This 357-nucleotide RNA sequence from Gammaproteobacteria bacterium ESL0073 belongs to the Rfam family "Bacterial RNase P class A". The source organism's lineage runs through Bacteria, Pseudomonadati, Pseudomonadota and Gammaproteobacteria. It scores 332 bits against the family's covariance model. The family's RNA type in Rfam is ribozyme. Rfam describes the family as follows. Ribonuclease P (RNase P) is a ubiquitous endoribonuclease, found in archaea, bacteria and eukarya as well as chloroplasts and mitochondria. Its best characterised activity is the generation of mature 5'-ends of tRNAs by cleaving the 5'-leader elements of precursor-tRNAs. Cellular RNase Ps are ribonucleoproteins. RNA from bacterial RNase Ps retains its catalytic activity in the absence of the protein subunit, i.e. it is a ribozyme. Isolated eukaryotic and archaeal RNase P RNA has not been shown to retain its catalytic function, but is still essential for the catalytic activity of the holoenzyme. Although the archaeal and eukaryotic holoenzyme s have a much greater protein content than the bacterial ones, the RNA cores from all the three lineages are homologous -- helices corresponding to P1, P2, P3, P4, and P10/11 are common to all cellular RNase P RNAs. Yet, there is considerable sequence variation, particularly among the eukaryotic RNAs. Identified in Yersinia as Ysr151/RnpB.

RNA sequence: AGAGUCGGUUAAACAGUCGCUGCCUUUUAUACUUGUAUAAAGGGGGGAGGAAAGUCCGGGCUCCACAGGGCAAAGUGCCAGGUAACGCCUGGGAGGUGAAAGCCUACGGAAAGUGCCACAGAAAACAACCGCCUAAGUAGCUUUGGCUAACGGUAAGGGUGAAAAGGUGCGGUAAGAGCGCACCGCGCAACUGGCAACAGUUUGUGGCUAGGUAAACCCCACUUGGAGCAAGACCAAAUAGGAAUCCUACGUGCGGCCCGUACAGGAUUCGGGUAGGUUGCUAAAGAUGUCCAGUGAUGGCCAUCGUAGAUGAAUGACUGUUCGCGACAGAACCCGGCUUAUCGACCGACUCUUGUU
Dot-bracket structure: ((((((((((((((((((.((.((((((((......)))))))).))....[[[.[[[[[((((...[[[[.((((((((((.....)))))(((((....)))).)((...(((((...........(((((....((((....))))..)))..)).......((((((.......))))))(((((((((....))).))))).)..)))..)))))))))))))...((((......((((((...((((.]]]])))).)))))).....))))......((((.(((....))).))))..........)))))))..........]]]]]]]].).))))))))))....